[Rfam]
RNA sequence: ACCCAUAAGCUUGAGACCAUAGAAGAAGUGCUCACAGUGCGGUUUUGUCAGAUUCCAGUGAAUUUGCAAAUCCUGCU
Numbered sequence: 001a002c003c004c005a006u007a008a009g010c011u012u013g014a015g016a017c018c019a020u021a022g023a024a025g026a027a028g029u030g031c032u033c034a035c036a037g038u039g040c041g042g043u044u045u046u047g048u049c050a051g052a053u054u055c056c057a058g059u060g061a062a063u064u065u066g067c068a069a070a071u072c073c074u075g076c077u
Base pairs, nucleotide, nucleotide: 013045015044016043017042018041021077022076024074025073027071028040029039030038049066050065051064052063053062054061055060
RNA: Mammalian CPEB3 ribozyme
Organism: Crocodylus porosus